Notes
S15-Halobacteria ribosomal protein leader: a 65-nucleotide RNA from Salinirubellus salinus. Rfam classes the family as a cis-regulatory leader. A reference for the family is Eckert and Weinberg (2020), "Discovery of 20 novel ribosomal leader candidates in bacteria and archaea", BMC Microbiol. A search with the family's covariance model found it, with a score of 77 bits. Pairs were carried over by alignment from the consensus structure, which is taken from published work.
RNA sequence: GUGGGAAGAGCACGGCCGCAAAUCUGACUCGUCGUCUUUCUGGCGACUUGGGAUUGCGGAAGUGC
Numbered sequence: 001g002u003g004g005g006a007a008g009a010g011c012a013c014g015g016c017c018g019c020a021a022a023u024c025u026g027a028c029u030c031g032u033c034g035u036c037u038u039u040c041u042g043g044c045g046a047c048u049u050g051g052g053a054u055u056g057c058g059g060a061a062g063u064g065c
Base pairs, nucleotide, nucleotide: 010065011064012063013062016059017058018057019056020055021054024052025051031047032046033045034044035043036042